[Rfam]
RNA sequence: AAGACUAUAGCUUAAUCGGUAAAGCGAACCACUCAUGAUGGUUUGAGUAAAUGUUCAAGUCAUUUUAGUCUUA
Numbered sequence: 001a002a003g004a005c006u007a008u009a010g011c012u013u014a015a016u017c018g019g020u021a022a023a024g025c026g027a028a029c030c031a032c033u034c035a036u037g038a039u040g041g042u043u044u045g046a047g048u049a050a051a052u053g054u055u056c057a058a059g060u061c062a063u064u065u066u067a068g069u070c071u072u073a
Stems, first nucleotide, its partner, number of pairs: 001072007010025004027043005049065005
RNA: tRNA